[Rfam]
The record is a 140-nucleotide RNA from Gouania willdenowi, which matches "Small nucleolar RNA SNORD10" in Rfam. Gene Ontology terms of the family: RNA processing and nucleolus. For this family Rfam cites "RNomics: an experimental approach that identifies 201 candidates for novel, small, non-messenger RNAs in mouse" (Huttenhofer et al., EMBO J, 2001). Rfam classes the family as a C/D-box small nucleolar RNA. Lineage of the source: Eukaryota > Teleostomi > Neopterygii > Euacanthomorphacea > Gouania. Rfam 15.1 lists 433 matches to the family in 306 species.
RNA sequence: GUAUUAUGAUGAAAACUCAUGCGUGUCAUCUGACUUUGGAGCCUCCUCCUGGGUUGAUGCUUGAGUUGGCGUUUUGCUGGCUCAGGUUUUCAAUACAGCAGGGAUCCAAAGAUGUGAUCAUACACUUUAUUUCUGAAUGC
Numbered sequence: 001g002u003a004u005u006a007u008g009a010u011g012a013a014a015a016c017u018c019a020u021g022c023g024u025g026u027c028a029u030c031u032g033a034c035u036u037u038g039g040a041g042c043c044u045c046c047u048c049c050u051g052g053g054u055u056g057a058u059g060c061u062u063g064a065g066u067u068g069g070c071g072u073u074u075u076g077c078u079g080g081c082u083c084a085g086g087u088u089u090u091c092a093a094u095a096c097a098g099c100a101g102g103g104a105u106c107c108a109a110a111g112a113u114g115u116g117a118u119c120a121u122a123c124a125c126u127u128u129a130u131u132u133c134u135g136a137a138u139g140c
Stems, first nucleotide, its partner, number of pairs: 001140004044103004049098003